[Rfam]
RNA: Group II catalytic intron D1-D4-7
RNA sequence: CCGGGGGUUCUGCCCCCCGCAGCCUAGGAACGGUGCCCAACUGGUAACGGUUAGGUGCUGAGCGUUCUGACAACGUAAUUCCCCUGAGGGGCGCGUAUGCCCCGUGAGGGGAGACGUGCGUGUGCGAGAUGCGCGUACACGGAUGC
Numbered sequence: 001c002c003g004g005g006g007g008u009u010c011u012g013c014c015c016c017c018c019g020c021a022g023c024c025u026a027g028g029a030a031c032g033g034u035g036c037c038c039a040a041c042u043g044g045u046a047a048c049g050g051u052u053a054g055g056u057g058c059u060g061a062g063c064g065u066u067c068u069g070a071c072a073a074c075g076u077a078a079u080u081c082c083c084c085u086g087a088g089g090g091g092c093g094c095g096u097a098u099g100c101c102c103c104g105u106g107a108g109g110g111g112a113g114a115c116g117u118g119c120g121u122g123u124g125c126g127a128g129a130u131g132c133g134c135g136u137a138c139a140c141g142g143a144u145g146c
Stems, first nucleotide, its partner, number of pairs: 002019006027068005032059006039052005081091004093117004102109002121139006